[Rfam]
RNA sequence: UGAAUCGUUUCGCUCCGAAGCUGGAUUGCCUAAAGCAAUGCUAUGGUGACCAGACUAGUGUCUUAGGCACUCGGGUAUUAUGGGAAACUGUGAUAUCUCCUGCUGGAAAGGAGUCUGUUGACAGGUGGA
Numbered sequence: 001u002g003a004a005u006c007g008u009u010u011c012g013c014u015c016c017g018a019a020g021c022u023g024g025a026u027u028g029c030c031u032a033a034a035g036c037a038a039u040g041c042u043a044u045g046g047u048g049a050c051c052a053g054a055c056u057a058g059u060g061u062c063u064u065a066g067g068c069a070c071u072c073g074g075g076u077a078u079u080a081u082g083g084g085a086a087a088c089u090g091u092g093a094u095a096u097c098u099c100c101u102g103c104u105g106g107a108a109a110g111g112a113g114u115c116u117g118u119u120g121a122c123a124g125g126u127g128g129a
Stems, first nucleotide, its partner, number of pairs: 006120001012114005021053004026049005034042003058070005073098011099106002

About this RNA: Rfam assigns this 129-nucleotide RNA sequence from Desulfosporosinus youngiae to the family "Molybdenum/Tungsten riboswitch aptamer (Moco RNA motif)". On this family, see Regulski et al., Mol Microbiol 2008: "in molybdenum cofactor and tungsten cofactor metabolism". The base pairs follow the family's consensus structure, which is taken from published work.